[Rfam]
RNA sequence: UGCUCUCUGCCCUGCAAGUGAGGUCGGUAAGCCCUUGCGGAAUAAAUAUUGACCCGGGGUUUCUUCAGGGGCGCGGUGUGCCAGCCCAAGAACUUAUUGGGACGCCUGAUGCGGUUCACAGGAGACCCCACCUAAUUAGGACUCGCAGGAGGCCUAAAGACCCACGGCAGGCGUGGAGAGCUG
Numbered sequence: 001u002g003c004u005c006u007c008u009g010c011c012c013u014g015c016a017a018g019u020g021a022g023g024u025c026g027g028u029a030a031g032c033c034c035u036u037g038c039g040g041a042a043u044a045a046a047u048a049u050u051g052a053c054c055c056g057g058g059g060u061u062u063c064u065u066c067a068g069g070g071g072c073g074c075g076g077u078g079u080g081c082c083a084g085c086c087c088a089a090g091a092a093c094u095u096a097u098u099g100g101g102a103c104g105c106c107u108g109a110u111g112c113g114g115u116u117c118a119c120a121g122g123a124g125a126c127c128c129c130a131c132c133u134a135a136u137u138a139g140g141a142c143u144c145g146c147a148g149g150a151g152g153c154c155u156a157a158a159g160a161c162c163c164a165c166g167g168c169a170g171g172c173g174u175g176g177a178g179a180g181c182u183g
Stems, first nucleotide, its partner, number of pairs: 002181009012170004018165002031153003035149002037146003056129003060124005068117003072113003080105002085101005
The record is a 183-nucleotide RNA from Syntrophotalea acetylenivorans, which matches "6S / SsrS RNA" in Rfam.
E. coli 6S RNA was the first non coding RNA to be sequenced, but its function was unknown until recently. It consists of 184 nucleotides that fold into an extended hairpin structure with a large single-stranded internal bulge. The 6S RNA specifically associates with RNA polymerase holoenzyme containing the sigma70 specificity factor. This interaction represses expression from a sigma70-dependent promoter during stationary phase. 6S RNA homologs have recently been identified in most bacterial genomes. Many Gram-positive species have two copies of 6S RNA. In Bacillus subtilis, both copies appear to interact with RNA polymerase holoenzyme containing the housekeeping sigma factor and be expressed during different stages of growth. In many proteobacteria, 6S RNA may be processed from a transcript encoding homologs of the E. coli YgfA protein which is a putative 5-formyltetrahydrofolate cycloligase activity.
A search with the family's covariance model found it, with a score of 65 bits.
By type it is a non-coding RNA gene.